RNA: mir-23c microRNA precursor family
RNA sequence: AGUGACUUUCCAGGUGUCACACAGUGAGUGGCAUAAUCAGAGUACAAUUUGAGUCAUGCCCAUACAUCACAUUGCCAGUGAUUACCCAAGGAAAGUGACG
Numbered sequence: 001a002g003u004g005a006c007u008u009u010c011c012a013g014g015u016g017u018c019a020c021a022c023a024g025u026g027a028g029u030g031g032c033a034u035a036a037u038c039a040g041a042g043u044a045c046a047a048u049u050u051g052a053g054u055c056a057u058g059c060c061c062a063u064a065c066a067u068c069a070c071a072u073u074g075c076c077a078g079u080g081a082u083u084a085c086c087c088a089a090g091g092a093a094a095g096u097g098a099c100g
Stems, first nucleotide, its partner, number of pairs: 002099002005096007013086004017081004022074002024070004028065002030060005037052005